Shown here is a 156-nucleotide sequence from Actinomadura hallensis, a member of the family "c-di-AMP riboswitch aptamer (ydaO/yuaA leader)". Rfam describes the family as follows. This family represents a conserved RNA structure found upstream of the ydaO and yuaA genes in Bacillus subtilis and related genes in other bacteria. The ydaO/yuaA element is thought to act as a genetic 'off' switch for the ydaO and yuaA genes in its native state. NCBI's taxonomy places the organism under Bacteria, Bacillati, Streptosporangiales, Thermomonosporaceae, Actinomadura.
RNA sequence: CCGCGGUGCAGGCCGAGUCCGUCCCGGUCCAGAUGGCCGGACGGAGCCGGGGACCCACGUCUCAGGGGUGAAUCGGCGCGACGCAGAGCCGCGCCGUAGGGCUGCUUCCAUGCCCGAAUCCGUCAGCUAACCCGGUAGGCGUCAUGGAAGACAAGG
Numbered sequence: 001c002c003g004c005g006g007u008g009c010a011g012g013c014c015g016a017g018u019c020c021g022u023c024c025c026g027g028u029c030c031a032g033a034u035g036g037c038c039g040g041a042c043g044g045a046g047c048c049g050g051g052g053a054c055c056c057a058c059g060u061c062u063c064a065g066g067g068g069u070g071a072a073u074c075g076g077c078g079c080g081a082c083g084c085a086g087a088g089c090c091g092c093g094c095c096g097u098a099g100g101g102c103u104g105c106u107u108c109c110a111u112g113c114c115c116g117a118a119u120c121c122g123u124c125a126g127c128u129a130a131c132c133c134g135g136u137a138g139g140c141g142u143c144a145u146g147g148a149a150g151a152c153a154a155g156g
Stems, first nucleotide, its partner, number of pairs: 012140003018045007046136006056065001066121003074096007099115004